The family of this 217-nucleotide RNA from Aidingimonas halophila is "Group II catalytic intron D1-D4-6". Lineage of the source: Bacteria > Pseudomonadota > Oceanospirillales > Halomonadaceae > Aidingimonas. The family has 174 seed sequences and 1,617 matches in Rfam 15.1.
[Rfam]
RNA sequence: AGAGUCCCACCCGGCCAAGGCUAGCCACCAGCCGGUAGCGAGUCUUGCAUGGCGUCGGGCGACCGCCGCUGCGAAGCGUAGACAGCGAGCGAAUAGCCCGUGUGAUUGAGCACCGAAAUUAUUGUUUAUGUGACCGCUGACAGUCUUGCUUCCCUGGAAGGCAACAUUGACCCGCUCAACUGGUUUUGCGGGGAAAGGUCACCGGUGUCGGAGAGCA
Number, nucleotide and partner (000 for none) at each position: 001a000002g000003a000004g000005u000006c000007c000008c000009a000010c000011c000012c034013g033014g032015c031016c000017a000018a000019g029020g028021c000022u000023a185024g184025c183026c000027a000028c020029c019030a000031g015032c014033c013034g012035g000036u088037a000038g086039c085040g000041a000042g083043u082044c081045u080046u078047g077048c073049a000050u071051g070052g069053c068054g067055u000056c065057g064058g063059g000060c000061g000062a000063c058064c057065g056066c000067c054068g053069c052070u051071g050072c000073g048074a000075a000076g000077c047078g046079u000080a045081g044082a043083c042084a000085g039086c038087g000088a036089g000090c000091g000092a000093a000094u000095a000096g000097c000098c000099c000100g000101u000102g000103u000104g000105a000106u000107u211108g209109a000110g208111c207112a206113c205114c204115g203116a000117a000118a000119u000120u000121a000122u000123u000124g000125u000126u000127u000128a000129u000130g202131u201132g200133a199134c198135c197136g162137c161138u160139g000140a000141c156142a155143g154144u000145c000146u000147u000148g000149c000150u000151u000152c000153c000154c143155u142156g141157g000158a000159a000160g138161g137162c136163a000164a000165c000166a000167u196168u195169g000170a000171c192172c191173c190174g189175c188176u000177c000178a000179a000180c000181u000182g000183g025184u024185u023186u000187u000188g175189c174190g173191g172192g171193g000194a000195a168196a167197g135198g134199u133200c132201a131202c130203c115204g114205g113206u112207g111208u110209c108210g000211g107212a000213g000214a000215g000216c000217a000